This 133-nucleotide sequence from Caldicellulosiruptor bescii belongs to the Rfam family "Bacterial antisense RNA HPnc0260".
RNA sequence: AUUAUUCAACAAUGAAAAUUUGCAAAAAAAAAUAACCCUUCUUUUCUUGACUUUUUAAAUCUAUCAUAAACAAUUAAAAUUGUCAAUAACCAAAUGGAGCCCACGACCGGGCUCGAACCGGCGACCUCCGCCU
Numbered sequence: 001a002u003u004a005u006u007c008a009a010c011a012a013u014g015a016a017a018a019u020u021u022g023c024a025a026a027a028a029a030a031a032a033u034a035a036c037c038c039u040u041c042u043u044u045u046c047u048u049g050a051c052u053u054u055u056u057a058a059a060u061c062u063a064u065c066a067u068a069a070a071c072a073a074u075u076a077a078a079a080u081u082g083u084c085a086a087u088a089a090c091c092a093a094a095u096g097g098a099g100c101c102c103a104c105g106a107c108c109g110g111g112c113u114c115g116a117a118c119c120g121g122c123g124a125c126c127u128c129c130g131c132c133u
Stems, first nucleotide, its partner, number of pairs: 022046001024044001028040002060068001062066001095130005104123002107121004
Dot-bracket structure: .....................(.(...((.........))...).).............(.(...).)..........................(((((....((.((((.......))))))..)))))...

Notes: The sequence is in the family's curated seed alignment. Pairs were carried over by alignment from the consensus structure, which was predicted with CMfinder.